[Rfam]
RNA sequence: GGACCUGUCUGUAAACCUGCACGGACAGAGCCCGAUCUUACAAGCAGGUUGGAGAAGAUAACUAUGGCUUUAGAUGCAGCCACCAAAGCCCAAAUUGUCACCGACUACAAGCAGUCAGAA
Numbered sequence: 001g002g003a004c005c006u007g008u009c010u011g012u013a014a015a016c017c018u019g020c021a022c023g024g025a026c027a028g029a030g031c032c033c034g035a036u037c038u039u040a041c042a043a044g045c046a047g048g049u050u051g052g053a054g055a056a057g058a059u060a061a062c063u064a065u066g067g068c069u070u071u072a073g074a075u076g077c078a079g080c081c082a083c084c085a086a087a088g089c090c091c092a093a094a095u096u097g098u099c100a101c102c103g104a105c106u107a108c109a110a111g112c113a114g115u116c117a118g119a120a
Base pairs, nucleotide, nucleotide: 007026008025009024010023011022012021049073050072051071052070053069054068
RNA: Ribosomal S15 leader
Organism: marine gamma proteobacterium HTCC2080